[Rfam]
RNA sequence: UUACAAUUAAAGGAUAUUUCUUGCAGAAUGAUUGUGCCUCAGAAAUGUCCUUUAAUUGUUUGGG
Numbered sequence: 001u002u003a004c005a006a007u008u009a010a011a012g013g014a015u016a017u018u019u020c021u022u023g024c025a026g027a028a029u030g031a032u033u034g035u036g037c038c039u040c041a042g043a044a045a046u047g048u049c050c051u052u053u054a055a056u057u058g059u060u061u062g063g064g
Stems, first nucleotide, its partner, number of pairs: 003059008012050010024036002